[Rfam]
RNA sequence: UAUAAAUAAGUAAAUAUUCCAUAGACAGUAGGUGCAAAAGCGUAAAGGGAUAGUCCCAACCUACCUAGGAUUCCAAUAUAAGAAGUCGGUUGGUCUCUCUUUGUCUAUGGAGAGAUCUUUAAUUUUGUAAGU
Numbered sequence: 001u002a003u004a005a006a007u008a009a010g011u012a013a014a015u016a017u018u019c020c021a022u023a024g025a026c027a028g029u030a031g032g033u034g035c036a037a038a039a040g041c042g043u044a045a046a047g048g049g050a051u052a053g054u055c056c057c058a059a060c061c062u063a064c065c066u067a068g069g070a071u072u073c074c075a076a077u078a079u080a081a082g083a084a085g086u087c088g089g090u091u092g093g094u095c096u097c098u099c100u101u102u103g104u105c106u107a108u109g110g111a112g113a114g115a116u117c118u119u120u121a122a123u124u125u126u127g128u129a130a131g132u
Stems, first nucleotide, its partner, number of pairs: 028064006034041002092117009

Shown here is a 132-nucleotide sequence from Clostridium sp. cel8, a member of the family "Ribosomal protein L10 leader".
The match comes from Rfam's covariance-model search (66 bits).
Rfam describes the family as follows. This family is a putative r-protein leader autoregulatory structure found in B. subtilis and other low-GC Gram-positive bacteria. It is located in the 5' untranslated regions of mRNAs encoding ribosomal proteins L10 and L12 (rplJ-rplL). A Rho-independent transcription terminator structure that is probably involved in regulation is included at the 3' end.
Pairs were carried over by alignment from the consensus structure, which was predicted with CMfinder.
By type it is a cis-regulatory leader.